[Rfam]
RNA sequence: ACCUGCCAAUCAUGCUAACUACUCGGGCUUGGCUGACUGGCCUCCCCGAGUACACCACCAACAACUGGGUCGAGUUGAAGGCUCAGUU
Numbered sequence: 001a002c003c004u005g006c007c008a009a010u011c012a013u014g015c016u017a018a019c020u021a022c023u024c025g026g027g028c029u030u031g032g033c034u035g036a037c038u039g040g041c042c043u044c045c046c047c048g049a050g051u052a053c054a055c056c057a058c059c060a061a062c063a064a065c066u067g068g069g070u071c072g073a074g075u076u077g078a079a080g081g082c083u084c085a086g087u088u
Stems, first nucleotide, its partner, number of pairs: 003086003007081001
Dot-bracket structure: ..(((.(.........................................................................)..)))..

Rfam assigns this 88-nucleotide RNA from Oryza punctata to the family "Small nucleolar RNA Z256". Rfam classes the family as a C/D-box small nucleolar RNA. On this family, see Chen et al., Nucleic Acids Res 2003: "The high diversity of snoRNAs in plants: identification and comparative study of 120 snoRNA genes from Oryza sativa".